Nuclear RNase P: a 285-nucleotide sequence from Labrus bergylta. Its family is annotated with ribonuclease P complex, ribonuclease P activity and tRNA processing in the Gene Ontology. The family's consensus secondary structure is taken from published work. The match comes from Rfam's covariance-model search (196 bits). Rfam classes the family as a ribozyme. Rfam describes the family as follows. Ribonuclease P (RNase P) is a ubiquitous endoribonuclease, found in archaea, bacteria and eukarya as well as chloroplasts and mitochondria. Its best characterised activity is the generation of mature 5'-ends of tRNAs by cleaving the 5'-leader elements of precursor-tRNAs.

RNA sequence: GUGGGUGGAAGCUCAUUGUAGAGGUCACAUGCUGAGUGCUCAUCACUCUACCAAUCACCUCGGGGAAGGUCUGAGACAAGAGCCACUAGCUACCCUCGCUGGGUAUCACCUGAUUCAGGUGAGCAGAUGAACAGUAAUAUGGAUUGCUAUGAGCAGUUGUUGCAGGAGAAACCGUGCGGUGGAUGUGACGCUCAAUAGCUUGGAAUCAAAUGCGGCUGGCCAAUGAGUGCGAUGUAUGAGGUGGGGCACAGCUCCAGAACCCAAUUCAGACUACUCUCCCCCCAC
Number, nucleotide and partner (000 for none) at each position: 001g285002u284003g283004g282005g000006u000007g279008g278009a277010a000011g000012c240013u239014c238015a237016u236017u000018g000019u000020a000021g061022a060023g059024g058025u000026c000027a000028c000029a000030u000031g000032c000033u000034g048035a047036g046037u045038g044039c000040u000041c000042a000043u000044c038045a037046c036047u035048c034049u000050a000051c000052c000053a000054a000055u000056c000057a000058c024059c023060u022061c021062g000063g000064g000065g000066a000067a000068g000069g000070u000071c269072u268073g267074a266075g265076a000077c000078a000079a000080g000081a217082g216083c215084c214085a000086c000087u000088a000089g000090c000091u105092a104093c103094c102095c101096u000097c000098g000099c000100u000101g095102g094103g093104u092105a091106u122107c121108a120109c119110c118111u117112g000113a000114u000115u000116c000117a111118g110119g109120u108121g107122a106123g213124c212125a211126g000127a000128u208129g207130a000131a000132c000133a000134g000135u000136a000137a000138u000139a000140u000141g000142g199143a000144u000145u000146g000147c000148u000149a000150u000151g000152a000153g000154c000155a000156g000157u000158u000159g000160u000161u000162g000163c000164a000165g000166g000167a000168g000169a000170a000171a000172c000173c000174g000175u000176g000177c000178g000179g000180u000181g000182g000183a000184u000185g000186u000187g000188a000189c000190g000191c000192u000193c000194a000195a000196u000197a000198g000199c142200u000201u000202g000203g000204a000205a000206u000207c129208a128209a000210a000211u125212g124213c123214g084215g083216c082217u081218g000219g000220c000221c000222a000223a000224u000225g000226a000227g000228u000229g000230c000231g000232a000233u000234g000235u000236a016237u015238g014239a013240g012241g000242u256243g255244g254245g253246g252247c251248a000249c000250a000251g247252c246253u245254c244255c243256a242257g000258a000259a000260c000261c000262c000263a000264a000265u075266u074267c073268a072269g071270a000271c000272u000273a000274c000275u000276c000277u009278c008279c007280c000281c000282c004283c003284a002285c001